[Rfam]
RNA sequence: GACAGCAAAGGUCGGAAAGGCUCCCGACGCACUCGCAAAGACUACCUGAGGUGAUGGAUACGCCGCCCAUCUUGCUGUU
Numbered sequence: 001g002a003c004a005g006c007a008a009a010g011g012u013c014g015g016a017a018a019g020g021c022u023c024c025c026g027a028c029g030c031a032c033u034c035g036c037a038a039a040g041a042c043u044a045c046c047u048g049a050g051g052u053g054a055u056g057g058a059u060a061c062g063c064c065g066c067c068c069a070u071c072u073u074g075c076u077g078u079u
Base pairs, nucleotide, nucleotide: 001079002078003077004076005075006074007073008072011028012027013026014025015024019064020063021062030048031043033041034040053071054070055069056068057067
The record is a 79-nucleotide RNA sequence, which matches "skipping-rope RNA" in Rfam. The sequence is in the family's curated seed alignment.